[Rfam]
RNA: Mammalian CPEB3 ribozyme
RNA sequence: UUACAAGCUCAAGGCCUUAGCAGAAGCACUCCCAGUGCAGUCCUGUCAUAUUCAAAUGAAUUUGCAAAUACUGCU
Dot-bracket structure: ............[[[...(((((.((((.......))).].]]...((.((((....)))).))....).)))))